[Rfam]
RNA: Streptococcus sRNA SpF59 (ldcC RNA)
RNA sequence: CGACCACCCGAAGGGGUUGAGGCCAUACGGACAGCCGGGUCGAAUGCCGA
Numbered sequence: 001c002g003a004c005c006a007c008c009c010g011a012a013g014g015g016g017u018u019g020a021g022g023c024c025a026u027a028c029g030g031a032c033a034g035c036c037g038g039g040u041c042g043a044a045u046g047c048c049g050a
Stems, first nucleotide, its partner, number of pairs: 001042005006017004